A member of the RNA family "T-box leader" from Staphylococcus aureus, 370 nucleotides long. The literature on the family includes a 1994 paper in J Bacteriol by Grundy et al., "Interaction between the acceptor end of tRNA and the T box stimulates antitermination in the Bacillus subtilis tyrS gene: a new role for the discriminator base". The source organism's lineage runs through Bacteria, Bacillati, Bacillota, Staphylococcus and Staphylococcus aureus.
[Rfam]
RNA sequence: GUAAACACAAUAAAGAGGAAAGUAAAACACACCCUGCUUAUACAGAGAGUCUUUAGUAGCUGAGAGAAGAUUUUGAAAGCGUGUUUGAAAAUGGCCUUGGAGUGUUGAUGCCAAUAUGAGGUGUCUACGGGUUCGCCCGUUAUAGCGAUACAGUAUUAACAUUGAUGUUAAAUGGCGUACUGGAUUCUUUACGCACGAUUUUUUGUUAAUAAGUAUGGGAUAGCACAUUACUAUAUCCUUACUUACUGACUUUAAUUGUGAUAAUUGUUCAGUAAGCAUAUUUACUUUUAAUGCGUACUGAAUAAGGUUAUUUCAGCGAUGGAAUAACAAAUAAAGGUGGUACCGCGAAACAUAAGCUUUCGUCCUUUUU
Numbered sequence: 001g002u003a004a005a006c007a008c009a010a011u012a013a014a015g016a017g018g019a020a021a022g023u024a025a026a027a028c029a030c031a032c033c034c035u036g037c038u039u040a041u042a043c044a045g046a047g048a049g050u051c052u053u054u055a056g057u058a059g060c061u062g063a064g065a066g067a068a069g070a071u072u073u074u075g076a077a078a079g080c081g082u083g084u085u086u087g088a089a090a091a092u093g094g095c096c097u098u099g100g101a102g103u104g105u106u107g108a109u110g111c112c113a114a115u116a117u118g119a120g121g122u123g124u125c126u127a128c129g130g131g132u133u134c135g136c137c138c139g140u141u142a143u144a145g146c147g148a149u150a151c152a153g154u155a156u157u158a159a160c161a162u163u164g165a166u167g168u169u170a171a172a173u174g175g176c177g178u179a180c181u182g183g184a185u186u187c188u189u190u191a192c193g194c195a196c197g198a199u200u201u202u203u204u205g206u207u208a209a210u211a212a213g214u215a216u217g218g219g220a221u222a223g224c225a226c227a228u229u230a231c232u233a234u235a236u237c238c239u240u241a242c243u244u245a246c247u248g249a250c251u252u253u254a255a256u257u258g259u260g261a262u263a264a265u266u267g268u269u270c271a272g273u274a275a276g277c278a279u280a281u282u283u284a285c286u287u288u289u290a291a292u293g294c295g296u297a298c299u300g301a302a303u304a305a306g307g308u309u310a311u312u313u314c315a316g317c318g319a320u321g322g323a324a325u326a327a328c329a330a331a332u333a334a335a336g337g338u339g340g341u342a343c344c345g346c347g348a349a350a351c352a353u354a355a356g357c358u359u360u361c362g363u364c365c366u367u368u369u370u
Stems, first nucleotide, its partner, number of pairs: 007103002015098004025086006040072001049071006107125006128139003307328007334367004345363005